[Rfam]
RNA sequence: GAACCUGACUCUUUCCUAUUCCUUGCUGUGCAGUGCAGGUCUGGGGACAGUUGGUGCUACAGCACAGCAGUGGGAAUCCAGAUGGGCUGUUUUCCCCUGAUUUGGAACUCAUUGCUACACCUCUGCAGCAUUU
Numbered sequence: 001g002a003a004c005c006u007g008a009c010u011c012u013u014u015c016c017u018a019u020u021c022c023u024u025g026c027u028g029u030g031c032a033g034u035g036c037a038g039g040u041c042u043g044g045g046g047a048c049a050g051u052u053g054g055u056g057c058u059a060c061a062g063c064a065c066a067g068c069a070g071u072g073g074g075a076a077u078c079c080a081g082a083u084g085g086g087c088u089g090u091u092u093u094c095c096c097c098u099g100a101u102u103u104g105g106a107a108c109u110c111a112u113u114g115c116u117a118c119a120c121c122u123c124u125g126c127a128g129c130a131u132u133u
Stems, first nucleotide, its partner, number of pairs: 001057001003055003013047006021039002067126004072121001081113006094105002